[Rfam]
This 98-nucleotide sequence from Spiroplasma melliferum belongs to the Rfam family "Purine riboswitch aptamer". Riboswitches are metabolite binding domains within certain messenger RNAs that serve as precision sensors for their corresponding targets. Allosteric rearrangement of mRNA structure is mediated by ligand binding, and this results in modulation of gene expression. A class of riboswitches that selectively recognises guanine and becomes saturated at concentrations as low as 5 nM. In Bacillus subtilis, this mRNA motif is located on at least five separate transcriptional units that together encode 17 genes that are mostly involved in purine transport and purine nucleotide biosynthesis. It has also been shown that some members of this family are specific for adenine instead.
RNA sequence: GUGAUAAAAAAAUAAAAUGCUGAUAUAUGUUAGUAUUAUGGACUAAUGUUUCUACAUCUUACCGUCAUUAAGAUACUAUAGGGCAUAAUUUUUUUUGU
Dot-bracket structure: ...................((.(((....(((((.......))))).........((((((.......))))))..))).))................
Numbered sequence: 001g002u003g004a005u006a007a008a009a010a011a012a013u014a015a016a017a018u019g020c021u022g023a024u025a026u027a028u029g030u031u032a033g034u035a036u037u038a039u040g041g042a043c044u045a046a047u048g049u050u051u052c053u054a055c056a057u058c059u060u061a062c063c064g065u066c067a068u069u070a071a072g073a074u075a076c077u078a079u080a081g082g083g084c085a086u087a088a089u090u091u092u093u094u095u096u097g098u
Stems, first nucleotide, its partner, number of pairs: 020082002023079003030046005056074006